[Rfam]
RNA sequence: GGAGAGGUGCUCGAGUGGUUGAAGAGGCACGCCUGGAAAGCAUGUAUACGGGUAACUGUAUCGAGAGUUCGAAUCUCUUCCUCUCCG
Numbered sequence: 001g002g003a004g005a006g007g008u009g010c011u012c013g014a015g016u017g018g019u020u021g022a023a024g025a026g027g028c029a030c031g032c033c034u035g036g037a038a039a040g041c042a043u044g045u046a047u048a049c050g051g052g053u054a055a056c057u058g059u060a061u062c063g064a065g066a067g068u069u070c071g072a073a074u075c076u077c078u079u080c081c082u083c084u085c086c087g
Stems, first nucleotide, its partner, number of pairs: 001086007010026003028044002031041002063079005
The record is an 87-nucleotide RNA from Dysgonomonas hofstadii, which matches "tRNA" in Rfam.
The family has 954 seed sequences and 5,335,975 matches in Rfam 15.1.
Lineage of the source: Bacteria > Bacteroidota > Bacteroidales > Dysgonomonadaceae > Dysgonomonas.
The base pairs follow the family's consensus structure, which is taken from published work.
The match comes from Rfam's covariance-model search (50 bits).